[Rfam]
This 71-nucleotide RNA sequence from Myotis davidii belongs to the Rfam family "mir-9193 microRNA precursor family". The family has 2 seed sequences and 6,008 matches in Rfam 15.1.

RNA sequence: UCUGGGGGGGGGUCCCUCAGCCCAGAUUGUGAGAGGGCACAGUCCAGGCCGAGGGACCCCACUGGUGCACG
Numbered sequence: 001u002c003u004g005g006g007g008g009g010g011g012g013u014c015c016c017u018c019a020g021c022c023c024a025g026a027u028u029g030u031g032a033g034a035g036g037g038c039a040c041a042g043u044c045c046a047g048g049c050c051g052a053g054g055g056a057c058c059c060c061a062c063u064g065g066u067g068c069a070c071g
Stems, first nucleotide, its partner, number of pairs: 003069002006066001009060010020049003025044007
The organism belongs to Myotis, within Eukaryota.